Alphaproteobacterial ar14: a 124-nucleotide RNA sequence from Rhizobium sp. RU20A.
Smr14C2 was renamed NfeR1 (Nodule Formation Efficiency RNA) highly expressed in salt stress and during the symbiotic interaction on legume roots.
Lineage of the source: Bacteria > Pseudomonadota > Alphaproteobacteria > Rhizobiaceae > Rhizobium.
Gene Ontology term of the family: biological process involved in symbiotic interaction.

RNA sequence: CAGUUUCGGGGCCGCGCACUCCUCCUCCUCCCAGCGCGCCUCGAUGCGAUCGGCGGCACUCCUCCUCCCAGUCGCCGAUCACCCUUAACGACACCCGCUGGUCCUCCCCCAGCGGGUGUCGUUG
Numbered sequence: 001c002a003g004u005u006u007c008g009g010g011g012c013c014g015c016g017c018a019c020u021c022c023u024c025c026u027c028c029u030c031c032c033a034g035c036g037c038g039c040c041u042c043g044a045u046g047c048g049a050u051c052g053g054c055g056g057c058a059c060u061c062c063u064c065c066u067c068c069c070a071g072u073c074g075c076c077g078a079u080c081a082c083c084c085u086u087a088a089c090g091a092c093a094c095c096c097g098c099u100g101g102u103c104c105u106c107c108c109c110c111a112g113c114g115g116g117u118g119u120c121g122u123u124g
Stems, first nucleotide, its partner, number of pairs: 007043003011039002014037004048080010091119011